[Rfam]
RNA sequence: AUUCCCUACGGAAUGCUCAGGUCCGCCGCAUCUCCUGGGUCCGUGGGGUCGGCCGGCGGCGAGGCGGGACAGCGAGUGGCCUCCUCGAUCCCCGAUACUCCCGCCGGCCACCUA
Numbered sequence: 001a002u003u004c005c006c007u008a009c010g011g012a013a014u015g016c017u018c019a020g021g022u023c024c025g026c027c028g029c030a031u032c033u034c035c036u037g038g039g040u041c042c043g044u045g046g047g048g049u050c051g052g053c054c055g056g057c058g059g060c061g062a063g064g065c066g067g068g069a070c071a072g073c074g075a076g077u078g079g080c081c082u083c084c085u086c087g088a089u090c091c092c093c094g095a096u097a098c099u100c101c102c103g104c105c106g107g108c109c110a111c112c113u114a
Stems, first nucleotide, its partner, number of pairs: 004048007016039006051109009061099001
Annotation: Rfam assigns this 114-nucleotide sequence from Roseibium sp. RKSG952 to the family "EcpR1". NCBI's taxonomy places the organism under Bacteria, Pseudomonadota, Hyphomicrobiales, Stappiaceae, Roseibium. A reference for the family is Schluter et al. (2010), "A genome-wide survey of sRNAs in the symbiotic nitrogen-fixing alpha-proteobacterium Sinorhizobium meliloti", BMC Genomics. A search with the family's covariance model found it, with a score of 97 bits. Perviously named SmelC291, SmrC10, or Sra33. Pairs were carried over by alignment from the consensus structure, which was predicted with WAR. Rfam links the family to the GO terms mRNA binding, regulation of translation in response to stress and negative regulation of cell cycle.